RNA sequence: UGGAAGAAUCUGUAAAGCUCAGGAGGGAUAGCACCAGAUCAUCAUAAUUAUGAUAUAUAUAUAUACAUAAUUAAGACUCAUCAUCUAUAUAAUAUAUGUCUCUAGCGCUAUCCAUCCUGAGUUUCAUGGCUUCUUCUU
Numbered sequence: 001u002g003g004a005a006g007a008a009u010c011u012g013u014a015a016a017g018c019u020c021a022g023g024a025g026g027g028a029u030a031g032c033a034c035c036a037g038a039u040c041a042u043c044a045u046a047a048u049u050a051u052g053a054u055a056u057a058u059a060u061a062u063a064u065a066c067a068u069a070a071u072u073a074a075g076a077c078u079c080a081u082c083a084u085c086u087a088u089a090u091a092a093u094a095u096a097u098g099u100c101u102c103u104a105g106c107g108c109u110a111u112c113c114a115u116c117c118u119g120a121g122u123u124u125c126a127u128g129g130c131u132u133c134u135u136c137u138u
Stems, first nucleotide, its partner, number of pairs: 010129001016123009026113007034105001
Rfam assigns this 138-nucleotide RNA sequence from Cannabis sativa to the family "MIR390 microRNA precursor family". The match comes from Rfam's covariance-model search (93 bits). Pairs were carried over by alignment from the consensus structure, which was predicted with WAR.